[Rfam]
RNA sequence: UGGUGAGUUGCUGUCGUGGGAUCCUGGGAAACAGGUUCGGUGAACAAAAAGCCGGUAAUCUCGGGCGUUCGUCAGACGCCGUCGUAUCAACACAGUAUGCAU
Numbered sequence: 001u002g003g004u005g006a007g008u009u010g011c012u013g014u015c016g017u018g019g020g021a022u023c024c025u026g027g028g029a030a031a032c033a034g035g036u037u038c039g040g041u042g043a044a045c046a047a048a049a050a051g052c053c054g055g056u057a058a059u060c061u062c063g064g065g066c067g068u069u070c071g072u073c074a075g076a077c078g079c080c081g082u083c084g085u086a087u088c089a090a091c092a093c094a095g096u097a098u099g100c101a102u
Stems, first nucleotide, its partner, number of pairs: 003100002006098001009097006016091001017089001019088002023035004039053003060084001064080005
Luteovirus cap-independent translation element (BTE): a 102-nucleotide sequence from Luteovirus glycinis. This family represents the Luteovirus cap-independent translation element (BTE) as found in barley yellow dwarf virus (BYDV), bean leafroll virus and soybean dwarf virus. This family mediates translation of genomic (gRNA) and subgenomic RNA1 (sgRNA1). Lineage of the source: Viruses > Orthornavirae > Kitrinoviricota > Luteovirus > Luteovirus glycinis. Rfam classes the family as a cis-regulatory element.